microRNA mir-251 microRNA precursor family: a 61-nucleotide sequence from Caenorhabditis brenneri.
[Rfam]
RNA sequence: UUAAGUAGUGGUGCCGCUCUUAUUAGAUGAGAUAGUAAUAAGAGUUGCUCACUACUUAUCA
Numbered sequence: 001u002u003a004a005g006u007a008g009u010g011g012u013g014c015c016g017c018u019c020u021u022a023u024u025a026g027a028u029g030a031g032a033u034a035g036u037a038a039u040a041a042g043a044g045u046u047g048c049u050c051a052c053u054a055c056u057u058a059u060c061a
Base pairs, nucleotide, nucleotide: 002058003057004056005055006054007053008052009051010050011049013048014047016045017044018043019042020041021040022039023038024037025036